The record is a 111-nucleotide RNA from Planococcus salinus, which matches "PyrR binding site" in Rfam. The family's consensus secondary structure is taken from published work. The organism belongs to Planococcus, within Bacteria.
RNA sequence: ACUACCUUUUAAUGAAUGUCCAGAGAGGCAUGGAAAGGGUCGAGCACAGGUACAGAGUUCGUCUGUCCUUGUUUCUUCACACCUUCCUGCCUCGGGAAGGUGUUUUUUUAU
Numbered sequence: 001a002c003u004a005c006c007u008u009u010u011a012a013u014g015a016a017u018g019u020c021c022a023g024a025g026a027g028g029c030a031u032g033g034a035a036a037g038g039g040u041c042g043a044g045c046a047c048a049g050g051u052a053c054a055g056a057g058u059u060c061g062u063c064u065g066u067c068c069u070u071g072u073u074u075c076u077u078c079a080c081a082c083c084u085u086c087c088u089g090c091c092u093c094g095g096g097a098a099g100g101u102g103u104u105u106u107u108u109u110a111u
Stems, first nucleotide, its partner, number of pairs: 005038005016031005046072005052066005079103011